[Rfam]
RNA sequence: GGUAUUUGUUUGCCCCACGAUAGGCCCCGGAAACUUAUUGAGUGUCAAACAAAAU
Numbered sequence: 001g002g003u004a005u006u007u008g009u010u011u012g013c014c015c016c017a018c019g020a021u022a023g024g025c026c027c028c029g030g031a032a033a034c035u036u037a038u039u040g041a042g043u044g045u046c047a048a049a050c051a052a053a054a055u
Stems, first nucleotide, its partner, number of pairs: 006052007016042001018040007
RNA: Ribosomal protein L13 leader